About this RNA: This 83-nucleotide sequence from Anaerocolumna sedimenticola belongs to the Rfam family "c-di-GMP-I-GGC riboswitch aptamer". Rfam 15.1 lists 1,298 matches to the family in 717 species. The literature on the family includes a 2009 paper in Nat Struct Mol Biol by Smith et al., "Structural basis of ligand binding by a c-di-GMP riboswitch".
RNA sequence: AGUGACAAAGGCAAACCUGCCGAAAGACAGGGACGCAAAGCUACGGGCCUAAGGUUUAUACUAUGGUCGCCGGGUUGCCAUGA
Numbered sequence: 001a002g003u004g005a006c007a008a009a010g011g012c013a014a015a016c017c018u019g020c021c022g023a024a025a026g027a028c029a030g031g032g033a034c035g036c037a038a039a040g041c042u043a044c045g046g047g048c049c050u051a052a053g054g055u056u057u058a059u060a061c062u063a064u065g066g067u068c069g070c071c072g073g074g075u076u077g078c079c080a081u082g083a
Stems, first nucleotide, its partner, number of pairs: 003080002011036002016031004021026001034069001039076004044072003047067003